[Rfam]
RNA sequence: UGCGGGGAGGGCGACUGGCGGCACGGGGAUGGGUCGGACCAUCGGGGAGCCUGUCACGGGAGUCGACCGCCUGGGCUGCCGUU
Numbered sequence: 001u002g003c004g005g006g007g008a009g010g011g012c013g014a015c016u017g018g019c020g021g022c023a024c025g026g027g028g029a030u031g032g033g034u035c036g037g038a039c040c041a042u043c044g045g046g047g048a049g050c051c052u053g054u055c056a057c058g059g060g061a062g063u064c065g066a067c068c069g070c071c072u073g074g075g076c077u078g079c080c081g082u083u
Stems, first nucleotide, its partner, number of pairs: 003058002006055002009052004015046002017071005029042004061077004
The record is an 83-nucleotide sequence from Micromonospora maris, which matches "ZMP/ZTP riboswitch aptamer (pfl RNA motif)" in Rfam. The base pairs follow the family's consensus structure, which is taken from published work. It scores 49 bits against the family's covariance model. A reference for the family is Jones and Ferre-D'Amare (2015), "Recognition of the bacterial alarmone ZMP through long-distance association of two RNA subdomains", Nat Struct Mol Biol. The source organism's lineage runs through Bacteria, Micromonosporales, Micromonosporaceae, Micromonospora and Micromonospora maris. Rfam links the family to the GO terms regulation of purine nucleotide biosynthetic process and one-carbon metabolic process.